[Rfam]
RNA: Small nucleolar RNA SNORD115
Organism: Oryctolagus cuniculus
RNA sequence: GGGUCAAUAAUGAGACCUCAUGCUAUCUCAAAGAGAGAUGAUGACUUAAAAAUCGUGCUCAAUAGGAUUACACUGAGGCCC
Numbered sequence: 001g002g003g004u005c006a007a008u009a010a011u012g013a014g015a016c017c018u019c020a021u022g023c024u025a026u027c028u029c030a031a032a033g034a035g036a037g038a039u040g041a042u043g044a045c046u047u048a049a050a051a052a053u054c055g056u057g058c059u060c061a062a063u064a065g066g067a068u069u070a071c072a073c074u075g076a077g078g079c080c081c
Stems, first nucleotide, its partner, number of pairs: 001081004005075002008072001